[Rfam]
RNA sequence: CACUCUCAUAAAGGCAUGUCUUUGGUUCCCUAUCUUUGGACAUGUAAGAAUUAGAGGCAAAGAAAUGUGGAUUUUUGGAGAAAUCUGAAGUCAGUUUGCUGACCCUCAGGCUCAAGAUCGACAGUACAACAUAA
Numbered sequence: 001c002a003c004u005c006u007c008a009u010a011a012a013g014g015c016a017u018g019u020c021u022u023u024g025g026u027u028c029c030c031u032a033u034c035u036u037u038g039g040a041c042a043u044g045u046a047a048g049a050a051u052u053a054g055a056g057g058c059a060a061a062g063a064a065a066u067g068u069g070g071a072u073u074u075u076u077g078g079a080g081a082a083a084u085c086u087g088a089a090g091u092c093a094g095u096u097u098g099c100u101g102a103c104c105c106u107c108a109g110g111c112u113c114a115a116g117a118u119c120g121a122c123a124g125u126a127c128a129a130c131a132u133a134a
Stems, first nucleotide, its partner, number of pairs: 003056004015044007024030002069127001071125001073124001093112006